[Rfam]
RNA sequence: AACCCACUUCAUCAGAUGAUGAGCUCAUGAUGUGCUCAUCAUCUGAUGAAGUGGGUUUU
Number, nucleotide and partner (000 for none) at each position: 001a057002a056003c055004c000005c053006a052007c051008u050009u049010c048011a047012u046013c045014a044015g043016a042017u041018g040019a039020u038021g037022a000023g000024c000025u000026c000027a000028u000029g000030a000031u000032g000033u000034g000035c000036u000037c021038a020039u019040c018041a017042u016043c015044u014045g013046a012047u011048g010049a009050a008051g007052u006053g005054g000055g003056u002057u001058u000059u000